The family of this 198-nucleotide RNA from Bacillus thuringiensis is "Group II catalytic intron D1-D4-5". NCBI's taxonomy places the organism under Bacteria, Bacilli, Caryophanales, Bacillaceae, Bacillus thuringiensis. Pairs were carried over by alignment from the consensus structure. The literature on the family includes a 2001 paper in Trends Genet by Bonen and Vogel, "The ins and outs of group II introns". The sequence is in the family's curated seed alignment. Its family is annotated with Group II intron splicing in the Gene Ontology. The family has 139 seed sequences and 720 matches in Rfam 15.1.
RNA sequence: GUGAACUAUCAUUCCGAGAAGUCAAACGAUAGGGUAACGCCUUGAAGGGCUUCCUUUAAUCCUUCGACAUGCAGUGAAGUUAGCAAGAACCUUACUGUAUGAAGCUCGGUGAAGUCGGCUGAGAGUUACCGUAAGUCUUAGAGACACGAAAGCCGUCCAGAGGUGGACGGUGUAACCUAUAAGCCGGAAGUCUAUAAA
Numbered sequence: 001g002u003g004a005a006c007u008a009u010c011a012u013u014c015c016g017a018g019a020a021g022u023c024a025a026a027c028g029a030u031a032g033g034g035u036a037a038c039g040c041c042u043u044g045a046a047g048g049g050c051u052u053c054c055u056u057u058a059a060u061c062c063u064u065c066g067a068c069a070u071g072c073a074g075u076g077a078a079g080u081u082a083g084c085a086a087g088a089a090c091c092u093u094a095c096u097g098u099a100u101g102a103a104g105c106u107c108g109g110u111g112a113a114g115u116c117g118g119c120u121g122a123g124a125g126u127u128a129c130c131g132u133a134a135g136u137c138u139u140a141g142a143g144a145c146a147c148g149a150a151a152g153c154c155g156u157c158c159a160g161a162g163g164u165g166g167a168c169g170g171u172g173u174a175a176c177c178u179a180u181a182a183g184c185c186g187g188a189a190g191u192c193u194a195u196a197a198a
Base pairs, nucleotide, nucleotide: 018053019052020051021050022049023048031043032042033041034040054190055189056188057187064109065108066107067106068101069100070099071098072097073096074095075094076093077092079090080089081088116186117185118184119183120182125176126175127174128173129172130148131147132146136144137143152171153170154169155168156167157166158165159164